About this RNA: The record is a 75-nucleotide RNA from Eubacterium ventriosum, which matches "Fluoride riboswitch aptamer (crcB RNA motif)" in Rfam. The source organism's lineage runs through Bacteria, Bacillati, Clostridia, Eubacterium and Eubacterium ventriosum. The sequence is in the family's curated seed alignment. Its family is annotated with positive regulation of gene expression and response to fluoride in the Gene Ontology.
[Rfam]
RNA sequence: UAAAUAAAAGGGAAUGAGGUUCUCCCUCGAUUUAAUCGAAACCGCUUAUAACAAGCUGAUGACUUCUGUGCAAUA
Numbered sequence: 001u002a003a004a005u006a007a008a009a010g011g012g013a014a015u016g017a018g019g020u021u022c023u024c025c026c027u028c029g030a031u032u033u034a035a036u037c038g039a040a041a042c043c044g045c046u047u048a049u050a051a052c053a054a055g056c057u058g059a060u061g062a063c064u065u066c067u068g069u070g071c072a073a074u075a
Stems, first nucleotide, its partner, number of pairs: 010026004016066006044056004